The family of this 125-nucleotide sequence from a Rhodobacterales bacterium is "SAM-I/IV (S-adenosyl methionine) riboswitch aptamer".
The organism belongs to Rhodobacterales, within Bacteria.
Pairs were carried over by alignment from the consensus structure, which is taken from published work.

RNA sequence: CUGCAACAUCAGGAGAAGGGCUGGCGCCCUCGCCAACCUGCCGACCGGGCAAGGUGGUUUCCGCAACAGGGAUGCGGCCGUCAGGAACCUAAAACGGGGGACUGCAGGCAACGAAGCGGUCGAAA
Dot-bracket structure: ......((((....(.(((((....))))))(((..((((((...[.))).))).)))............))))..(((...........................))).........]......